A member of the RNA family "Plastid-psbM 3UTR RNA" from Salvia splendens, 72 nucleotides long.

[Rfam]
Nucleotides: 072
Base pairs, nucleotide, nucleotide: 006045007044008043009042010041011040012039013038014037015036016035017034018033019032020031021030022029023028
Number, partner (000 for none) and nucleotide at each position: 001000a002000g003000a004000u005000a006045g007044a008043u009042a010041g011040u012039a013038u014037g015036g016035u017034a018033g019032a020031a021030a022029a023028a024000u025000u026000c027000a028023u029022u030021u031020u032019u033018c034017u035016a036015c037014c038013a039012u040011a041010c042009u043008a044007u045006c046000u047000a048000u049000c050000u051000c052000u053000u054000a055000g056000u057000c058000u059000a060000u061000a062000a063000a064000g065000c066000u067000g068000u069000a070000a071000u072000c

For this family Rfam cites "Retrograde signaling in plants: A critical review focusing on the GUN pathway and beyond" (Richter et al., Plant Commun, 2023). A search with the family's covariance model found it, with a score of 63 bits. About the family: Plastid psbM is a non-coding RNA (ncRNA) recognised in plastids. It was found in the three prime untranslated region (3UTR) of psbM gene, its 3UTR location suggests a role in transcript maturation. The base pairs follow the family's consensus structure, which was predicted with LocARNA.